[Rfam]
RNA sequence: ACAAAGGCUCUUUUCAGAGCCACCCACCCUUUCAAGAGAAGAGCUGU
Numbered sequence: 001a002c003a004a005a006g007g008c009u010c011u012u013u014u015c016a017g018a019g020c021c022a023c024c025c026a027c028c029c030u031u032u033c034a035a036g037a038g039a040a041g042a043g044c045u046g047u
Stems, first nucleotide, its partner, number of pairs: 006021006

The record is a 47-nucleotide RNA sequence from Grus americana, which matches "Histone 3' UTR stem-loop" in Rfam. Its family is annotated with mRNA 3'-end processing by stem-loop binding and cleavage in the Gene Ontology.